[Rfam]
RNA sequence: AGAUGAGGUAGAGGUUGCGUGAAUUAUGAGUAAUUUUUUGGAUGUGGCAGUCGCAAGUGAAGGAAAAUGAAAGGGAGGAACGCCGAAAGAGUUUUUUCAUACUGCAGAGAGGCUCUUGGGCAUACAGUUAAGAGCUGUGUGACUGUCAUCAGUUAUUUGAUGGGGCGCUAUCCGAUUC
Numbered sequence: 001a002g003a004u005g006a007g008g009u010a011g012a013g014g015u016u017g018c019g020u021g022a023a024u025u026a027u028g029a030g031u032a033a034u035u036u037u038u039u040g041g042a043u044g045u046g047g048c049a050g051u052c053g054c055a056a057g058u059g060a061a062g063g064a065a066a067a068u069g070a071a072a073g074g075g076a077g078g079a080a081c082g083c084c085g086a087a088a089g090a091g092u093u094u095u096u097u098c099a100u101a102c103u104g105c106a107g108a109g110a111g112g113c114u115c116u117u118g119g120g121c122a123u124a125c126a127g128u129u130a131a132g133a134g135c136u137g138u139g140u141g142a143c144u145g146u147c148a149u150c151a152g153u154u155a156u157u158u159g160a161u162g163g164g165g166c167g168c169u170a171u172c173c174g175a176u177u178c
Stems, first nucleotide, its partner, number of pairs: 007172005017083004024076002033068007087117011118144002121141008146163007
This 178-nucleotide sequence from Firmicutes bacterium CAG:95 belongs to the Rfam family "Lysine riboswitch aptamer". The family's consensus secondary structure is taken from published work. Rfam describes the family as follows. Riboswitches are metabolite binding domains within certain messenger RNAs that serve as precision sensors for their corresponding targets.